[Rfam]
This 380-nucleotide part of an RNA from Acinetobacter pittii belongs to the Rfam family "Bacterial large subunit ribosomal RNA". The base pairs follow the family's consensus structure, which is taken from published work.
RNA sequence: GACAAAACGGGUGAAAAACCCGUUCGCCGAAAGACCAAGGGUUCCAGUCCAACGUUAAUCGGGGCUGGGUGAGUCGACCCCUAAGGCGAGGCCGAAAGGCGUAGUCGAUGGGAAAUUGGUUAAUAUUCCAAUACUUCUGUGUAAUGCGAUGAGAGGACGGAGAAGGUUAAGUCAGCCUGGCGUUGGUUGUCCAGGUGGAAGGAUGUAGGUAUGUAUCUUAGGCAAAUCCGGGGUACUCUAUACUGAGAUCCGAUAGCAAGCUGUACUUGUACAGUGAAGUGGCUGAUACCAUGCUUCCAGGAAAAGUCUCUAAGCUUCAGUUACACAGGAAUCGUACCCGAAACCGACACAGGUGGUCAGGUCGAGUAGACCAAGGCGCU
Numbered sequence: 001g002a003c004a005a006a007a008c009g010g011g012u013g014a015a016a017a018a019c020c021c022g023u024u025c026g027c028c029g030a031a032a033g034a035c036c037a038a039g040g041g042u043u044c045c046a047g048u049c050c051a052a053c054g055u056u057a058a059u060c061g062g063g064g065c066u067g068g069g070u071g072a073g074u075c076g077a078c079c080c081c082u083a084a085g086g087c088g089a090g091g092c093c094g095a096a097a098g099g100c101g102u103a104g105u106c107g108a109u110g111g112g113a114a115a116u117u118g119g120u121u122a123a124u125a126u127u128c129c130a131a132u133a134c135u136u137c138u139g140u141g142u143a144a145u146g147c148g149a150u151g152a153g154a155g156g157a158c159g160g161a162g163a164a165g166g167u168u169a170a171g172u173c174a175g176c177c178u179g180g181c182g183u184u185g186g187u188u189g190u191c192c193a194g195g196u197g198g199a200a201g202g203a204u205g206u207a208g209g210u211a212u213g214u215a216u217c218u219u220a221g222g223c224a225a226a227u228c229c230g231g232g233g234u235a236c237u238c239u240a241u242a243c244u245g246a247g248a249u250c251c252g253a254u255a256g257c258a259a260g261c262u263g264u265a266c267u268u269g270u271a272c273a274g275u276g277a278a279g280u281g282g283c284u285g286a287u288a289c290c291a292u293g294c295u296u297c298c299a300g301g302a303a304a305a306g307u308c309u310c311u312a313a314g315c316u317u318c319a320g321u322u323a324c325a326c327a328g329g330a331a332u333c334g335u336a337c338c339c340g341a342a343a344c345c346g347a348c349a350c351a352g353g354u355g356g357u358c359a360g361g362u363c364g365a366g367u368a369g370a371c372c373a374a375g376g377c378g379c380u
Stems, first nucleotide, its partner, number of pairs: 006024006025378004033358004039338002044068006053061002075334003080111002085106003089102001091100003115132005135330011146315002151310004159297004165290003170284005175196006201251004208244003213236007221229002260275005344353002360372004